[Rfam]
RNA: Bacterial RNase P class A
Organism: Sphingomonas spermidinifaciens
Nucleotides: 369
Base pairs, nucleotide, nucleotide: 001365002364003363004362005361006360007359008358009357010356011354012318013317014316015315016314017313018312020041021040023038024037025036026035027034028033046352047351048350050349051348052347053346054345055218056217057216058215063251068214069213070212071211072210073087074086075085076084077083088102089100090099091098092097103209104208108207109206110203111202112201125149126148127145128144129143132141133140134139157175158174159173160172161171162170176198177196178195179194181192182191183190184189222275223274224273225272232266233265234264235263236262237261243259244258245257246256247255282301283300284299285298286297287296288295289294
Number, partner (000 for none) and nucleotide at each position: 001365c002364c003363a004362g005361a006360g007359g008358g009357c010356c011354g012318g013317g014316c015315g016314g017313c018312c019000g020041c021040g022000g023038g024037c025036g026035g027034a028033g029000g030000c031000a032000a033028c034027u035026c036025c037024g038023c039000g040021c041020g042000a043000g044000g045000a046352a047351a048350g049000u050349c051348c052347g053346g054345g055218c056217u057216c058215c059000a060000c061000g062000a063251g064000a065000c066000a067000g068214c069213g070212g071211u072210g073087c074086c075085g076084g077083g078000u079000a080000a081000c082000g083077c084076c085075c086074g087073g088102c089100g090099g091098g092097g093000g094000c095000g096000a097092c098091c099090c100089c101000a102088g103209g104208g105000a106000a107000a108207g109206u110203g111202c112201c113000a114000c115000a116000g117000a118000g119000a120000g121000c122000a123000g124000a125149c126148g127145g128144c129143g130000a131000c132141g133140g134139u135000u136000u137000c138000g139134a140133c141132c142000a143129c144128g145127c146000c147000a148126c149125g150000g151000u152000g153000a154000a155000a156000g157175g158174g159173u160172g161171c162170g163000g164000c165000a166000a167000g168000a169000g170162c171161g172160c173159a174158c175157c176198g177196c178195g179194c180000g181192c182191c183190c184189g185000g186000u187000a188000a189184c190183g191182g192181g193000g194179g195178c196177g197000g198176c199000a200000c201112g202111g203110c204000a205000a206109a207108c208104c209103c210072c211071a212070c213069c214068g215058g216057g217056a218055g219000c220000a221000a222275g223274a224273c225272c226000g227000a228000a229000u230000a231000g232266g233265g234264g235263c236262g237261g238000c239000a240000c241000a242000u243259g244258g245257g246256c247255c248000u249000u250000g251063u252000c253000u254000c255247g256246g257245c258244c259243c260000g261237u262236c263235g264234c265233c266232c267000g268000g269000g270000u271000u272225g273224g274223u275222u276000g277000c278000u279000c280000g281000a282301g283300c284299g285298c286297g287296c288295c289294g290000g291000c292000a293000a294289c295288g296287g297286u298285g299284c300283g301282c302000c303000u304000a305000g306000a307000g308000g309000a310000a311000u312018g313017g314016u315015c316014g317013c318012c319000c320000a321000g322000u323000c324000c325000c326000g327000c328000u329000c330000g331000c332000g333000g334000g335000a336000u337000g338000g339000a340000c341000a342000g343000a344000a345054c346053c347052c348051g349050g350048c351047u352046u353000a354011c355000a356010g357009g358008c359007c360006c361005u362004c363003u364002g365001g366000c367000g368000a369000u